[Rfam]
RNA sequence: CCAUGACAAAGGCAACCCGUUUGAGAAGGCGGGGCGCAAAGCUAUCGGGUCCGUGGGUCUCACGAGCAAUCGUGUCGACCUCAGGAAUGCCGGGCUGCCAAG
Numbered sequence: 001c002c003a004u005g006a007c008a009a010a011g012g013c014a015a016c017c018c019g020u021u022u023g024a025g026a027a028g029g030c031g032g033g034g035c036g037c038a039a040a041g042c043u044a045u046c047g048g049g050u051c052c053g054u055g056g057g058u059c060u061c062a063c064g065a066g067c068a069a070u071c072g073u074g075u076c077g078a079c080c081u082c083a084g085g086a087a088u089g090c091c092g093g094g095c096u097g098c099c100a101a102g
Stems, first nucleotide, its partner, number of pairs: 012037002017032006040096004046092003050086002056080004
Description
The family of this 102-nucleotide sequence from Rubripirellula lacrimiformis is "c-di-GMP-I riboswitch aptamer". The organism belongs to Rubripirellula, within Bacteria. Clan: c-di-GMP_I riboswitch clan.